[Rfam]
Nucleotides: 094
Stems, first nucleotide, its partner, number of pairs: 001094006008086004013081010024070001026069003030065003033060006042051001
Number, partner (000 for none) and nucleotide at each position: 001094g002093u003092g004091u005090c006089a007000u008086g009085g010084u011083c012000g013081u014080u015079g016078u017077u018076g019075a020074c021073c022072g023000c024070u025000c026069a027068u028067a029000c030065g031064a032063u033060c034059c035058u036057g037056c038055a039000a040000u041000u042051g043000c044000a045000u046000u047000g048000c049000a050000g051042c052000u053000u054000a055038u056037g057036c058035a059034g060033g061000g062000g063032g064031u065030c066000a067028u068027a069026u070024a071000a072022c073021g074020g075019u076018c077017a078016a079015c080014a081013g082000a083011g084010a085009c086008u087000c088000u089006u090005g091004a092003c093002a094001u
The record is a 94-nucleotide sequence from Medicago truncatula, which matches "MIR2587 microRNA precursor family" in Rfam. Taxonomically the source falls in Medicago (Eukaryota, Magnoliopsida, eudicotyledons, fabids). A search with the family's covariance model found it, with a score of 78 bits. The literature on the family includes a 2009 paper in Plant Cell by Lelandais-Briere et al., "Genome-wide Medicago truncatula small RNA analysis revealed novel microRNAs and isoforms differentially regulated in roots and nodules". The family's consensus secondary structure was predicted with RNAalifold.